[Rfam]
RNA: Eukaryotic large subunit ribosomal RNA, nucleotides 416 to 639
RNA sequence: GCUUGUGACUAGACUUACGUCUGGUGAAUUACCUAGCUCUCGCGGCUAGGGCACUUUGCUGGCAUAGGCUAGCAUUAGCUUGCUGUUAGGGAUAAAAGCUUUAGGAACGUAGCUCUCUUUAGGGAGUGUUAUAGCCUGUUGCAUAAUACCCUUUAGCAGGCUGAGGUAUGCGCUCCGCAAGGAUGCUAGCGUAAUAGUUAUUAGUAACCUGUCUUAAAACACAG
Numbered sequence: 001g002c003u004u005g006u007g008a009c010u011a012g013a014c015u016u017a018c019g020u021c022u023g024g025u026g027a028a029u030u031a032c033c034u035a036g037c038u039c040u041c042g043c044g045g046c047u048a049g050g051g052c053a054c055u056u057u058g059c060u061g062g063c064a065u066a067g068g069c070u071a072g073c074a075u076u077a078g079c080u081u082g083c084u085g086u087u088a089g090g091g092a093u094a095a096a097a098g099c100u101u102u103a104g105g106a107a108c109g110u111a112g113c114u115c116u117c118u119u120u121a122g123g124g125a126g127u128g129u130u131a132u133a134g135c136c137u138g139u140u141g142c143a144u145a146a147u148a149c150c151c152u153u154u155a156g157c158a159g160g161c162u163g164a165g166g167u168a169u170g171c172g173c174u175c176c177g178c179a180a181g182g183a184u185g186c187u188a189g190c191g192u193a194a195u196a197g198u199u200a201u202u203a204g205u206a207a208c209c210u211g212u213c214u215u216a217a218a219a220c221a222c223a224g
Base pairs, nucleotide, nucleotide: 001205002204003203005201006200007199008198009197010196011195016066017065019063020062021061023059070188071187072186073185074184075183076182209224210223211222212221